The family of this 375-nucleotide RNA sequence from Nereida ignava is "Alphaproteobacteria transfer-messenger RNA". Its Rfam clan is "tRNA clan". About the family: Bacterial tmRNA, also known as 10Sa RNA or SsrA, is named for its dual tRNA and mRNA-like properties. Its role is to liberate the mRNA from a stalled ribosome. The organism belongs to Nereida, within Bacteria. The literature on the family includes a 1996 paper in RNA by Williams and Bartel, "Phylogenetic analysis of tmRNA secondary structure". It is annotated as a non-coding RNA gene.

[Rfam]
RNA sequence: CCUGUUGCAAACCACAGCCAGCCGAUUAUGUAUGACUUGUCUCUUUGGGGACUAUGGACAUAAACGCGCUCGUAAUAAGCGGAUCGGACCCGGGGGCGGUACCCGGCGACUCCACCAUAUUACCACCGGCGGCAUCCUUCAUUUGGGGAGGUCAUUCGGGAUUGUGGGGUCGAAAUAGGAUCGACGAACGUCUAAAGGGGUUUGCUUUGUUUCGGUGAGUUACCACCGUUAUCGGUACAUUUAAGCUAGUUGCAAAUGACAACAAAGCUCCAGUAGCACUCGCAGCGUAAGCAGCGCGUAAUACUGAACUCUAAGUCCUAAGGCCUAGCAGCUUUAGGCGGGGUUCGCAGGUACCUGGCAACAGAAACCUGCACU
Dot-bracket structure: ......................................(((((....)))))...(((((.....((((((........((..(((...(((((.......)))))(((((((((................................................)))))))))............))).)).......))))..))..)))))((((..[[.[[[)))).....]]]]]......................................................................................................[[[[..((((((]]]]..........))))))...
Numbered sequence: 001c002c003u004g005u006u007g008c009a010a011a012c013c014a015c016a017g018c019c020a021g022c023c024g025a026u027u028a029u030g031u032a033u034g035a036c037u038u039g040u041c042u043c044u045u046u047g048g049g050g051a052c053u054a055u056g057g058a059c060a061u062a063a064a065c066g067c068g069c070u071c072g073u074a075a076u077a078a079g080c081g082g083a084u085c086g087g088a089c090c091c092g093g094g095g096g097c098g099g100u101a102c103c104c105g106g107c108g109a110c111u112c113c114a115c116c117a118u119a120u121u122a123c124c125a126c127c128g129g130c131g132g133c134a135u136c137c138u139u140c141a142u143u144u145g146g147g148g149a150g151g152u153c154a155u156u157c158g159g160g161a162u163u164g165u166g167g168g169g170u171c172g173a174a175a176u177a178g179g180a181u182c183g184a185c186g187a188a189c190g191u192c193u194a195a196a197g198g199g200g201u202u203u204g205c206u207u208u209g210u211u212u213c214g215g216u217g218a219g220u221u222a223c224c225a226c227c228g229u230u231a232u233c234g235g236u237a238c239a240u241u242u243a244a245g246c247u248a249g250u251u252g253c254a255a256a257u258g259a260c261a262a263c264a265a266a267g268c269u270c271c272a273g274u275a276g277c278a279c280u281c282g283c284a285g286c287g288u289a290a291g292c293a294g295c296g297c298g299u300a301a302u303a304c305u306g307a308a309c310u311c312u313a314a315g316u317c318c319u320a321a322g323g324c325c326u327a328g329c330a331g332c333u334u335u336a337g338g339c340g341g342g343g344u345u346c347g348c349a350g351g352u353a354c355c356u357g358g359c360a361a362c363a364g365a366a367a368c369c370u371g372c373a374c375u
Stems, first nucleotide, its partner, number of pairs: 039052005056212005066205002068201004080190002084187003090106005107172009213228004219238002222236003341356004347372006